[Rfam]
Group I catalytic intron: a 335-nucleotide RNA from Peltaster fructicola. Taxonomically the source falls in Peltaster (Eukaryota, Opisthokonta, Ascomycota, dothideomyceta). From the family's description: Group I catalytic introns are large self-splicing ribozymes. They catalyse their own excision from mRNA, tRNA and rRNA precursors in a wide range of organisms. The core secondary structure consists of 9 paired regions (P1-P9). These fold to essentially two domains - the P4-P6 domain (formed from the stacking of P5, P4, P6 and P6a helices) and the P3-P9 domain (formed from the P8, P3, P7 and P9 helices). The secondary structure mark-up for this family represents only this conserved core. Group I catalytic introns often have long ORFs inserted in loop regions. The window size for this search is chosen to minimise search time and catch the small examples. A larger window size will find more matches. Pairs were carried over by alignment from the consensus structure, which is taken from published work. Rfam 15.1 lists 5,602 matches to the family in 1,395 species.
RNA sequence: AAAAGGUAAUACUUAAGAGGGUCAUCAAAGGGACGUAAAGGCGAUCCCUAGUGGUGGGAGGAUGUCCUUCCACUGCGACACCGUCAAAUUGCGGGGAGUUCCUAAAGCUUCUACUACCGCGGCUCGUCGAAAGACAGAGUGCAGCACCGGGGUAAUGACCUAGGGAUGGUAAAACGUAGAAGAUGUCACAAUGGAUAAUCCGCAGCCAAGCGCUACAUGUUUUCUCUGCAAAGGAGAAACACACGCGUGCAGUUCAACGACUAAAUGGUGGUGGGUCUUGGCCAAACACAGGUCAAGGCUUAAGAUAUAGUCUAAGCCUCCUCUGAAAGGGAGAG
Dot-bracket structure: ...((......)).................................................................(((((.((...((((((....(((..........................................................................................)))...))))))((...((((....(((((..............)))))...))))...))...[.[[[[[..)).))))).(((((((((.......)))))))))........]]]]]]......(.(((....))).)..
Numbered sequence: 001a002a003a004a005g006g007u008a009a010u011a012c013u014u015a016a017g018a019g020g021g022u023c024a025u026c027a028a029a030g031g032g033a034c035g036u037a038a039a040g041g042c043g044a045u046c047c048c049u050a051g052u053g054g055u056g057g058g059a060g061g062a063u064g065u066c067c068u069u070c071c072a073c074u075g076c077g078a079c080a081c082c083g084u085c086a087a088a089u090u091g092c093g094g095g096g097a098g099u100u101c102c103u104a105a106a107g108c109u110u111c112u113a114c115u116a117c118c119g120c121g122g123c124u125c126g127u128c129g130a131a132a133g134a135c136a137g138a139g140u141g142c143a144g145c146a147c148c149g150g151g152g153u154a155a156u157g158a159c160c161u162a163g164g165g166a167u168g169g170u171a172a173a174a175c176g177u178a179g180a181a182g183a184u185g186u187c188a189c190a191a192u193g194g195a196u197a198a199u200c201c202g203c204a205g206c207c208a209a210g211c212g213c214u215a216c217a218u219g220u221u222u223u224c225u226c227u228g229c230a231a232a233g234g235a236g237a238a239a240c241a242c243a244c245g246c247g248u249g250c251a252g253u254u255c256a257a258c259g260a261c262u263a264a265a266u267g268g269u270g271g272u273g274g275g276u277c278u279u280g281g282c283c284a285a286a287c288a289c290a291g292g293u294c295a296a297g298g299c300u301u302a303a304g305a306u307a308u309a310g311u312c313u314a315a316g317c318c319u320c321c322u323c324u325g326a327a328a329g330g331g332a333g334a335g
Stems, first nucleotide, its partner, number of pairs: 004013002079273005085267002090204006100195003205253002210248004218241005257313001259312005275299009320333001322331003